[Rfam]
RNA sequence: GGUCGGUUCAUCUAACGGUUAGGAUACAAGAUUCUCAAUCUUGGCAUACGAGUUCGAUUCUCGUACCGACUA
Numbered sequence: 001g002g003u004c005g006g007u008u009c010a011u012c013u014a015a016c017g018g019u020u021a022g023g024a025u026a027c028a029a030g031a032u033u034c035u036c037a038a039u040c041u042u043g044g045c046a047u048a049c050g051a052g053u054u055c056g057a058u059u060c061u062c063g064u065a066c067c068g069a070c071u072a
Base pairs, nucleotide, nucleotide: 001071002070003069004068005067006066007065010025011024012023013022027043028042029041030040031039048064049063050062051061052060
RNA: tRNA